[Rfam]
RNA sequence: GCCGAGCUCAGCAACGUGAUCUUGUAACCCGAGUGGGGGCUUUGAGGUGCUGGAACAUUGUCCCAGUAUUAGCUGGUCGGGUUCGGGCUGGCUAUCUUCUGGCUCGCCCAUUCCAAGCCAGGAGUUGAACGCUGUGGCUUGAGCGAAGGCUCUGGGUCAAUGGGUUUCUAGAGUGGAGGGCACUGCGUAAGGCUGGGUUCACAGAGCAACGAUUACCUCCCGCUCUUGGCAGUGGAAGGAUAACGGGUCGGUGCCACUCGGAUCCACCAUGGCCUGCUAGACUGUCCCAAUUUGAACCAAAACCUUU
Number, nucleotide and partner (000 for none) at each position: 001g040002c039003c038004g023005a022006g021007c000008u019009c018010a017011g000012c000013a000014a000015c000016g000017u010018g009019a008020u000021c006022u005023u004024g000025u000026a000027a000028c037029c036030c035031g000032a000033g000034u000035g030036g029037g028038g003039g002040c001041u000042u000043u000044g306045a305046g304047g303048u302049g000050c000051u299052g298053g297054a000055a000056c294057a293058u290059u289060g288061u000062c000063c000064c284065a283066g282067u281068a000069u280070u279071a278072g277073c276074u000075g274076g273077u272078c271079g265080g264081g263082u262083u261084c260085g259086g258087g257088c000089u256090g255091g254092c000093u253094a252095u000096c000097u000098u000099c251100u250101g249102g248103c247104u246105c245106g244107c000108c239109c238110a000111u237112u236113c235114c234115a233116a000117g230118c229119c228120a227121g226122g225123a224124g223125u222126u000127g167128a166129a165130c164131g000132c162133u000134g000135u159136g158137g157138c156139u155140u154141g153142a151143g150144c149145g000146a000147a000148g000149g144150c143151u142152c000153u141154g140155g139156g138157u137158c136159a135160a000161u000162g132163g000164g130165u129166u128167u127168c173169u000170a000171g000172a000173g168174u000175g220176g219177a218178g217179g216180g000181c000182a000183c000184u000185g000186c211187g210188u209189a000190a000191g000192g000193c204194u203195g202196g000197g000198u000199u000200c000201a000202c195203a194204g193205a000206g000207c000208a000209a188210c187211g186212a000213u000214u000215a000216c179217c178218u177219c176220c175221c000222g125223c124224u123225c122226u121227u120228g119229g118230c117231a000232g000233u115234g114235g113236a112237a111238g109239g108240a000241u000242a000243a000244c106245g105246g104247g103248u102249c101250g100251g099252u094253g093254c091255c090256a089257c087258u086259c085260g084261g083262a082263u081264c080265c079266a000267c000268c000269a000270u000271g078272g077273c076274c075275u000276g073277c072278u071279a070280g069281a067282c066283u065284g064285u000286c000287c000288c060289a059290a058291u000292u000293u057294g056295a000296a000297c053298c052299a051300a000301a000302a048303c047304c046305u045306u044307u000

This 307-nucleotide RNA from Prunus armeniaca belongs to the Rfam family "Plant signal recognition particle RNA". The base pairs follow the family's consensus structure, which is taken from published work. Clan: SRP clan. Taxonomically the source falls in Prunus (Eukaryota, Viridiplantae, Embryophyta, Rosales).